The record is a 67-nucleotide RNA sequence from Caenorhabditis elegans, which matches "Caenorhabditis snoRNA ceN108" in Rfam. The organism belongs to Caenorhabditis, within Eukaryota. For this family Rfam cites "Systematic identification of non-coding RNA 2,2,7-trimethylguanosine cap structures in Caenorhabditis elegans" (Jia et al., BMC Mol Biol, 2007). The pairing is the family consensus, mapped onto this sequence. The match comes from Rfam's covariance-model search (53 bits). By type it is a C/D-box small nucleolar RNA.
RNA sequence: GUGCGAUGAAGGUUAAUGAUAAGUUUCGGCUGACUCAAAUUGAUGACACCUUUAAUAUGCUGAGCAC
Numbered sequence: 001g002u003g004c005g006a007u008g009a010a011g012g013u014u015a016a017u018g019a020u021a022a023g024u025u026u027c028g029g030c031u032g033a034c035u036c037a038a039a040u041u042g043a044u045g046a047c048a049c050c051u052u053u054a055a056u057a058u059g060c061u062g063a064g065c066a067c
Stems, first nucleotide, its partner, number of pairs: 001067004